[Rfam]
RNA sequence: GCCACACUGAAGCAGCACUGCUAAUAUUGGGGUUGGGUUCUAUUCUUACACGCCAAUAUUUACGUGCUGCUAAAGCGUGGC
Numbered sequence: 001g002c003c004a005c006a007c008u009g010a011a012g013c014a015g016c017a018c019u020g021c022u023a024a025u026a027u028u029g030g031g032g033u034u035g036g037g038u039u040c041u042a043u044u045c046u047u048a049c050a051c052g053c054c055a056a057u058a059u060u061u062a063c064g065u066g067c068u069g070c071u072a073a074a075g076c077g078u079g080g081c
Base pairs, nucleotide, nucleotide: 001081002080003079005077007075011071012070013069014068015067016066017065018064023060024059025058026057027056028055029054030053
Shown here is an 81-nucleotide RNA sequence from Amphiprion ocellaris, a member of the family "mir-16 microRNA precursor family". A search with the family's covariance model found it, with a score of 48 bits. Its family is annotated with miRNA-mediated post-transcriptional gene silencing and RISC complex in the Gene Ontology. On this family, see Calin et al., Proc Natl Acad Sci U S A 2002: "Frequent deletions and down-regulation of micro- RNA genes miR15 and miR16 at 13q14 in chronic lymphocytic leukemia".